[Rfam]
RNA sequence: AUAGAAUAAUCGCUGAAUCAUUUAGAGCGGGGGAACCAUUCUUUUGGGGUGAAUCCUUUUUUGAAAAGGCAGGGUUAACUUUCAUGACCCGAAUCCGUCAGCUAACCUCGUAAGCGUUGUGAAGGAGAUGU
Numbered sequence: 001a002u003a004g005a006a007u008a009a010u011c012g013c014u015g016a017a018u019c020a021u022u023u024a025g026a027g028c029g030g031g032g033g034a035a036c037c038a039u040u041c042u043u044u045u046g047g048g049g050u051g052a053a054u055c056c057u058u059u060u061u062u063g064a065a066a067a068g069g070c071a072g073g074g075u076u077a078a079c080u081u082u083c084a085u086g087a088c089c090c091g092a093a094u095c096c097g098u099c100a101g102c103u104a105a106c107c108u109c110g111u112a113a114g115c116g117u118u119g120u121g122a123a124g125g126a127g128a129u130g131u
Base pairs, nucleotide, nucleotide: 011116012115013114014113018026019025027111028110029109030108031107032106037046038045047096048095049094055069056068057067058066072090073089074088075087
Rfam assigns this 131-nucleotide RNA from Bacillus salacetis to the family "c-di-AMP riboswitch aptamer (ydaO/yuaA leader)". Rfam links the family to the GO terms regulation of gene expression and cyclic-di-AMP binding. The organism belongs to Bacillus, within Bacteria.